Rfam assigns this 91-nucleotide RNA sequence from Pedobacter psychrophilus to the family "Flavo-1 RNA". The organism belongs to Pedobacter, within Bacteria. It is annotated as a small RNA. The base pairs follow the family's consensus structure, which is taken from published work.
RNA sequence: UUUUUGCGUUAGGGAAUGAAACGGCAUCCUUUUUUUGCGCUAGCCAUUUUGCAAUUAGCAAAAAAAGAUAUAGUGUAAAGCCCGCCCGAAC
Numbered sequence: 001u002u003u004u005u006g007c008g009u010u011a012g013g014g015a016a017u018g019a020a021a022c023g024g025c026a027u028c029c030u031u032u033u034u035u036u037g038c039g040c041u042a043g044c045c046a047u048u049u050u051g052c053a054a055u056u057a058g059c060a061a062a063a064a065a066a067g068a069u070a071u072a073g074u075g076u077a078a079a080g081c082c083c084g085c086c087c088g089a090a091c
Stems, first nucleotide, its partner, number of pairs: 012083003017078001021074002026069003032064007